[Rfam]
RNA sequence: ACAUGGGAUAGCCUUUCUCAGUAUUUUGUUCUAAUUAUAUUGUAUCAAGACUAUCUCCAUAAGGCAAAAAAGCAACGGCUUUAAAACCGUUGCUUUUUGCGU
Numbered sequence: 001a002c003a004u005g006g007g008a009u010a011g012c013c014u015u016u017c018u019c020a021g022u023a024u025u026u027u028g029u030u031c032u033a034a035u036u037a038u039a040u041u042g043u044a045u046c047a048a049g050a051c052u053a054u055c056u057c058c059a060u061a062a063g064g065c066a067a068a069a070a071a072g073c074a075a076c077g078g079c080u081u082u083a084a085a086a087c088c089g090u091u092g093c094u095u096u097u098u099g100c101g102u
Base pairs, nucleotide, nucleotide: 005057007055008054009053010052011051016050017049018048022047025044030039032037062102064100065099066098067097068096069095070094072093073092074091075090076089077088078087
RNA: Streptococcus sRNA SpF25
Organism: Streptococcus danieliae